[Rfam]
Nucleotides: 113
Stems, first nucleotide, its partner, number of pairs: 007107001009105005020041007043093003046089002050087003057080001
Number, partner (000 for none) and nucleotide at each position: 001000c002000c003000u004000c005000a006000g007107c008000a009105c010104u011103c012102u013101g014000g015000a016000a017000a018000g019000a020041g021040u022039u023038c024037c025036u026035c027000g028000c029000c030000c031000c032000g033000g034000c035026g036025g037024g038023g039022g040021g041020c042000c043093g044092c045091c046089g047088a048000a049000g050087g051086g052085g053000u054000a055000a056000g057080u058000c059000c060000u061000g062000g063000c064000c065000g066000c067000a068000u069000g070000a071000g072000g073000c074000c075000a076000u077000g078000a079000c080057g081000a082000a083000a084000g085052c086051u087050c088047u089046c090000a091045g092044g093043u094000u095000c096000c097000g098000u099000g100000a101013c102012a103011g104010a105009g106000g107007g108000g109000g110000c111000g112000a113000c
This 113-nucleotide RNA sequence from Sphingomonas prati belongs to the Rfam family "Glycine riboswitch aptamer". The source organism's lineage runs through Bacteria, Pseudomonadota, Alphaproteobacteria, Sphingomonadales and Sphingomonas.